[Rfam]
RNA sequence: GAUUGUCGUGAAUCUUGGUCGAUGGGCUUAUUUUACCCCCAUUGAUUGUAAAGGCCGACAUAUACCAGUUUCGACGGUUACUUACAGGAACAGCCUGAACAUUUUGAUUUUUGAAGGUUUUUUCUGUAAGCUUGUAAUUGCUGUCGAAC
Numbered sequence: 001g002a003u004u005g006u007c008g009u010g011a012a013u014c015u016u017g018g019u020c021g022a023u024g025g026g027c028u029u030a031u032u033u034u035a036c037c038c039c040c041a042u043u044g045a046u047u048g049u050a051a052a053g054g055c056c057g058a059c060a061u062a063u064a065c066c067a068g069u070u071u072c073g074a075c076g077g078u079u080a081c082u083u084a085c086a087g088g089a090a091c092a093g094c095c096u097g098a099a100c101a102u103u104u105u106g107a108u109u110u111u112u113g114a115a116g117g118u119u120u121u122u123u124c125u126g127u128a129a130g131c132u133u134g135u136a137a138u139u140g141c142u143g144u145c146g147a148a149c
Base pairs, nucleotide, nucleotide: 004060005059006058007057008056010055016048017047018046019045020044021043022042023041024040025039026038029035030034072143073142075140076139077138078137079136080132081130082129083128085126086125087124088123089122090121098119099118100117
About this RNA: A member of the RNA family "Nematode snoRNA ceN105" from Caenorhabditis briggsae, 149 nucleotides long. Rfam classes the family as an H/ACA-box small nucleolar RNA. Lineage of the source: Eukaryota > Metazoa > Chromadorea > Rhabditidae > Caenorhabditis. For this family Rfam cites "Systematic identification of non-coding RNA 2,2,7-trimethylguanosine cap structures in Caenorhabditis elegans" (Jia et al., BMC Mol Biol, 2007). The family has 3 seed sequences and 12 matches in Rfam 15.1.